[Rfam]
RNA sequence: GAUAACCAAAGAUCGGCACAGGAUUGAGGGUCGGAUCACUAAUGAUUCUCACAUUGCCCACGACCGAAUCAUAAAUACCACCCCAUAAUGUCGCUUUCCCGACAAAUAAUAAAGCUGCGACUCCCAGAAAAAUUAAAUGAUGACCCAAAAUAAACCCCAUUUUCUGUGGGUCGUUCCA
Numbered sequence: 001g002a003u004a005a006c007c008a009a010a011g012a013u014c015g016g017c018a019c020a021g022g023a024u025u026g027a028g029g030g031u032c033g034g035a036u037c038a039c040u041a042a043u044g045a046u047u048c049u050c051a052c053a054u055u056g057c058c059c060a061c062g063a064c065c066g067a068a069u070c071a072u073a074a075a076u077a078c079c080a081c082c083c084c085a086u087a088a089u090g091u092c093g094c095u096u097u098c099c100c101g102a103c104a105a106a107u108a109a110u111a112a113a114g115c116u117g118c119g120a121c122u123c124c125c126a127g128a129a130a131a132a133u134u135a136a137a138u139g140a141u142g143a144c145c146c147a148a149a150a151u152a153a154a155c156c157c158c159a160u161u162u163u164c165u166g167u168g169g170g171u172c173g174u175u176c177c178a
Stems, first nucleotide, its partner, number of pairs: 136175006144169002148165001

This 178-nucleotide RNA from Xenococcus sp. PCC 7305 belongs to the Rfam family "Antisense RNA which regulates isiA expression". Pairs were carried over by alignment from the consensus structure, which was predicted with PFOLD. A search with the family's covariance model found it, with a score of 116 bits. NCBI's taxonomy places the organism under Bacteria, Cyanophyceae, Pleurocapsales, Xenococcaceae, Xenococcus.